[Rfam]
RNA: Small nucleolar RNA SNORD59
RNA sequence: UCUUCGGUGAUGACUUAACAGUAUGACUUUCGUUCUUCUGAGUCUGCUGAAGCCAAUCUUUCUGUCCUGAGAAGA
Numbered sequence: 001u002c003u004u005c006g007g008u009g010a011u012g013a014c015u016u017a018a019c020a021g022u023a024u025g026a027c028u029u030u031c032g033u034u035c036u037u038c039u040g041a042g043u044c045u046g047c048u049g050a051a052g053c054c055a056a057u058c059u060u061u062c063u064g065u066c067c068u069g070a071g072a073a074g075a
Stems, first nucleotide, its partner, number of pairs: 001075003005071001